[Rfam]
RNA sequence: UGGUCAGGCAUGUGCGGCCUCCUCUUGGGGAGAGGGAGAGGCCCUCCCGCCUGCGUCGGCGUGCCCUCACCCGGGCGAGUGAACAUACCCAACUUGGCUGGCUUUGUGCCCCAUUGCCUGCCCUACGCUCGGCGCGACACGACACCAGACAUGCGACGGCCCUCGCCGGGACGGCAAUCCCAGUGCGAGGGCCUGACCACCAAGGAAGUAAGAGGCUUCCCG
Number, nucleotide and partner (000 for none) at each position: 001u000002g000003g000004u000005c053006a052007g051008g050009c049010a000011u000012g000013u000014g000015c000016g000017g000018c000019c000020u000021c000022c000023u000024c000025u000026u000027g000028g000029g000030g000031a000032g000033a000034g000035g000036g000037a000038g000039a000040g000041g000042c000043c000044c000045u000046c000047c000048c000049g009050c008051c007052u006053g005054c000055g000056u000057c000058g000059g000060c000061g000062u000063g000064c000065c000066c000067u082068c081069a080070c079071c000072c077073g000074g000075g000076c000077g072078a000079g070080u069081g068082a067083a000084c000085a000086u000087a000088c000089c000090c000091a000092a000093c000094u000095u000096g000097g133098c132099u131100g130101g129102c000103u000104u000105u000106g000107u000108g000109c000110c000111c000112c000113a000114u000115u000116g000117c000118c000119u000120g000121c000122c000123c000124u000125a000126c000127g000128c000129u101130c100131g099132g098133c097134g000135c000136g000137a000138c000139a000140c000141g000142a000143c000144a000145c000146c000147a000148g000149a000150c000151a000152u000153g000154c000155g000156a000157c000158g193159g192160c191161c190162c189163u000164c187165g186166c185167c000168g181169g180170g179171a178172c000173g000174g000175c000176a000177a000178u171179c170180c169181c168182a000183g000184u000185g166186c165187g164188a000189g162190g161191g160192c159193c158194u000195g000196a000197c000198c000199a000200c000201c000202a000203a000204g220205g219206a218207a217208g216209u000210a000211a000212g000213a000214g000215g000216c208217u207218u206219c205220c204221c000222g000